[Rfam]
RNA sequence: UCUUCAUAUCACGGUCUCUCUCACCGAUUAGAGAGGCGAGAGAGUGUGCGAAAUGAAGAGA
Numbered sequence: 001u002c003u004u005c006a007u008a009u010c011a012c013g014g015u016c017u018c019u020c021u022c023a024c025c026g027a028u029u030a031g032a033g034a035g036g037c038g039a040g041a042g043a044g045u046g047u048g049c050g051a052a053a054u055g056a057a058g059a060g061a
Stems, first nucleotide, its partner, number of pairs: 001059007010050001012048002016044002019041004
This 61-nucleotide RNA sequence from Pristionchus pacificus belongs to the Rfam family "mir-8364 microRNA precursor family".
Pairs were carried over by alignment from the consensus structure, which was predicted with RNAalifold.
Gene Ontology terms of the family: miRNA-mediated post-transcriptional gene silencing and RISC complex.
Rfam 15.1 lists 3,320 matches to the family in 2 species.
The organism belongs to Pristionchus, within Eukaryota.